[Rfam]
RNA sequence: CUUAACUGUGUUAUAACACACACAGAUCGGCACAUUUUCCGGGGUGCUCUUAUGUAGGAAAGCCUACAGCUAAUGAGUCGGGGAAUGGGAUCUGUGGAGGCAUAAC
Numbered sequence: 001c002u003u004a005a006c007u008g009u010g011u012u013a014u015a016a017c018a019c020a021c022a023c024a025g026a027u028c029g030g031c032a033c034a035u036u037u038u039c040c041g042g043g044g045u046g047c048u049c050u051u052a053u054g055u056a057g058g059a060a061a062g063c064c065u066a067c068a069g070c071u072a073a074u075g076a077g078u079c080g081g082g083g084a085a086u087g088g089g090a091u092c093u094g095u096g097g098a099g100g101c102a103u104a105a106c
Stems, first nucleotide, its partner, number of pairs: 021096008033087009046078004

t44 RNA: a 106-nucleotide RNA sequence. The family's consensus secondary structure was predicted with LocARNA. For this family Rfam cites "Transcriptome analysis of Escherichia coli using high-density oligonucleotide probe arrays" (Tjaden et al., Nucleic Acids Res, 2002). The family's RNA type in Rfam is small RNA.